[Rfam]
RNA sequence: AAACGCUUCUCUUAUUGUAGUAGCUAACAAUAAUAUUCAAACGCUUCUCUUAUUGUAAUAGCUAACAAUAAAAUUCAAACGCUUCUCUUAUUGUAGUAGCUAACAAUAA
Dot-bracket structure: ......[[...(((((((]]......)))))))...........[[...(((((((]]......)))))))...........[[...(((((((]]......)))))))

This 109-nucleotide RNA from Psylliodes chrysocephalus belongs to the Rfam family "Fusobacteriales-1 RNA". The family's consensus secondary structure is taken from published work. Lineage of the source: Eukaryota > Bilateria > Panarthropoda > Aparaglossata > Psylliodes. It is annotated as a cis-regulatory element.